[Rfam]
RNA sequence: AAUAUAUAUUAAUCGUGCGGAUUAAUAAUCCAGGACUCUAAAACCGUGUUGUUUGAAAUGAUCUUUAGCGUUGUUUCAAACGUCAAGUCCAUCGGAGAGAUUGAAAUUUUGUUCAUCUUAGUGCCCUUUUGUAUUGAUUAUAAAUGAUUGGAGAUUAAAUAAGUUUCGAUUUUUUUGCUUUCCAAUCAUUACAGUUUUUGCAUGGGCUGGUAGGACAGACAGUU
Dot-bracket structure: .......(((((((.....)))))))..(((.((((..............((((((((((((.....)..))))))))))).....))))...)))...................(((((..((((...((((..((......(((((.(((((........................))))).))))).....))..)))).))))...))))).........